Record summary:
The record is a 49-nucleotide RNA sequence from Urbifossiella limnaea, which matches "Guanidine-II riboswitch aptamer (mini-ykkC)" in Rfam. For this family Rfam cites "Identification of 22 candidate structured RNAs in bacteria using the CMfinder comparative genomics pipeline" (Weinberg et al., Nucleic Acids Res, 2007). Rfam describes the family as follows. Simpler in structure and has fewer highly conserved nucleotide positions than the ykkC-yxkD leader.
RNA sequence: ACGCGGGGACGACCCCGCGCUCGUCAACAACUCGGUGGGGACGACCCCG
Numbered sequence: 001a002c003g004c005g006g007g008g009a010c011g012a013c014c015c016c017g018c019g020c021u022c023g024u025c026a027a028c029a030a031c032u033c034g035g036u037g038g039g040g041a042c043g044a045c046c047c048c049g
Stems, first nucleotide, its partner, number of pairs: 002019007036049005
Dot-bracket structure: .(((((((....)))))))................(((((....)))))